[Rfam]
RNA sequence: UUGUAUAUUUUUAAUGAAAUAAAGCAAAAUUGUUAGUGCUUUGUUUCUUAAACAACAGUGCAGAAAUUAAACGCUUGAUUAUUCUUUUGAAAAUGAAAGAAAAUUAAGCAGCGGCCAGACAACCGUAGGGGUGGUAUCCACAGAUGAAGGAUUUUUAAAUCUCCCCUUUGUCUACUGAUUCCAUCUCACAUUU
Number, nucleotide and partner (000 for none) at each position: 001u000002u062003g061004u060005a059006u058007a000008u000009u054010u000011u052012u000013a000014a049015u000016g047017a046018a045019a044020u043021a042022a041023a040024g039025c038026a037027a000028a000029a000030u000031u000032g000033u000034u000035a000036g000037u026038g025039c024040u023041u022042u021043g020044u019045u018046u017047c016048u000049u014050a000051a000052a011053c000054a009055a000056c000057a000058g006059u005060g004061c003062a002063g000064a000065a000066a000067u000068u000069a000070a000071a000072c000073g000074c000075u000076u000077g000078a000079u000080u000081a000082u000083u000084c000085u000086u000087u000088u000089g000090a000091a000092a000093a000094u000095g000096a000097a000098a000099g000100a000101a000102a000103a000104u000105u000106a000107a000108g000109c000110a000111g000112c000113g000114g000115c000116c000117a000118g000119a000120c000121a000122a000123c000124c000125g000126u000127a000128g187129g186130g185131g184132u183133g182134g181135u000136a180137u000138c000139c000140a000141c000142a000143g000144a000145u000146g000147a169148a168149g166150g165151a000152u000153u000154u000155u000156u000157a000158a000159a000160u000161c000162u000163c000164c000165c150166c149167u000168u148169u147170g000171u000172c000173u000174a000175c000176u000177g000178a000179u000180u136181c134182c133183a132184u131185c130186u129187c128188a000189c000190a000191u000192u000193u000
Overview
This 193-nucleotide sequence from Hibiscus syriacus belongs to the Rfam family "small nucleolar RNA snoR143". A reference for the family is Chen and Wu (2009), "Mining small RNA sequencing data: a new approach to identify small nucleolar RNAs in Arabidopsis", Nucleic Acids Res. The family has 3 seed sequences and 660 matches in Rfam 15.1. The match comes from Rfam's covariance-model search (64 bits).